[Rfam]
Nucleotides: 307
Stems, first nucleotide, its partner, number of pairs: 001108003005102005011096001013093001018090002024087006031080003035074002037070003042067004047061002116170002118167004122138004127134002139161003146157003200263001202261001206257002209254001213250002222248002280305002283302002285299004
Number, partner (000 for none) and nucleotide at each position: 001108g002107g003106a004000u005102g006101u007100g008099a009098g010000a011096g012000c013093g014000a015000u016000c017000u018090g019089g020000c021000u022000g023000u024087g025086a026085u027084a028083u029082c030000u031080g032079u033078c034000a035074c036073c037070c038069c039068a040000u041000u042067g043066a044065u045064c046000a047061c048060c049000a050000g051000g052000a053000u054000u055000g056000a057000u058000u059000c060048g061047g062000c063000u064045g065044a066043u067042c068039u069038g070037g071000c072000u073036g074035g075000c076000u077000a078033g079032g080031c081000c082029g083028g084027u085026g086025u087024c088000u089019c090018c091000u092000c093013c094000u095000u096011c097000c098009c099008u100007c101006a102005c103000c104000u105000c106003u107002c108001c109000a110000u111000g112000u113000g114000u115000g116170u117169c118167c119166c120165u121164c122138c123137c124136a125135g126000a127134g128133c129000u130000g131000a132000c133128g134127c135125u136124u137123g138122g139161u140160u141159g142000a143000a144000a145000a146157g147156g148155g149000c150000g151000a152000c153000c154000u155148u156147c157146c158000c159141u160140g161139a162000u163000a164121g165120a166119g167118g168000a169117g170116g171000g172000c173000c174000a175000u176000c177000c178000u179000u180000c181000a182000g183000u184000c185000a186000a187000g188000g189000g190000u191000a192000u193000a194000u195000g196000a197000g198000u199000a200263g201000c202261c203000a204000u205000g206257c207256u208000c209254c210000c211000c212000u213250g214249c215000u216000a217000g218000a219000c220000c221000c222248u223247c224000c225000a226000a227000a228000c229000a230000a231000g232000c233000u234000c235000u236000c237000a238000a239000g240000a241000a242000a243000g244000a245000a246000a247223g248222g249214g250213c251000c252000a253000a254209g255000a256207a257206g258000a259000g260000u261202g262000u263200c264000a265000g266000a267000a268000g269000a270000g271000a272000c273000u274000c275000u276000g277000a278000a279000a280305c281304u282000u283302g284301c285299u286298c287297u288296c289000c290000a291000g292000c293000a294000u295000a296288g297287a298286g299285a300000u301284g302283c303000u304281a305280g306000a307000g
This 307-nucleotide RNA from Chrysochloris asiatica belongs to the Rfam family "7SK RNA". The source organism's lineage runs through Eukaryota, Chordata, Teleostomi, Euteleostomi and Chrysochloris. The family's consensus secondary structure is taken from published work. Its Rfam clan is "7SK clan". About the family: 7SK was discovered as an abundant small nuclear RNA in the mid-70s but a possible function has only recently been suggested. Two independent studies have found that 7SK RNA binds the CDK9/cyclin T complex (known as elongation factor P-TEFb). P-TEFb activates transcription by phosphorylating the C-terminal domain of RNA polymerase II. This process is negatively regulated by the 7SK RNP. The secondary structure of 7SK RNA shown here was proposed by Wasserman and Steitz on the basis of chemical modification and enzymatic cleavage experiments. It is annotated as a non-coding RNA gene. The family has 45 seed sequences and 49,373 matches in Rfam 15.1.